[Rfam]
RNA sequence: AGCUUGAUGAUGAUUGUCUCCUGUGAUUGCUGCUAAAGCAAAGUGAUCAGUCCUUUCACCGACACUGAGAGCA
Dot-bracket structure: .((((...............................................................)))).
Shown here is a 73-nucleotide RNA from Eubucco bourcierii, a member of the family "Small nucleolar RNA SNORD102". The base pairs follow the family's consensus structure, which was predicted with PFOLD. A search with the family's covariance model found it, with a score of 51 bits. For this family Rfam cites "Identification of 13 novel human modification guide RNAs" (Vitali et al., Nucleic Acids Res, 2003). It is annotated as a C/D-box small nucleolar RNA.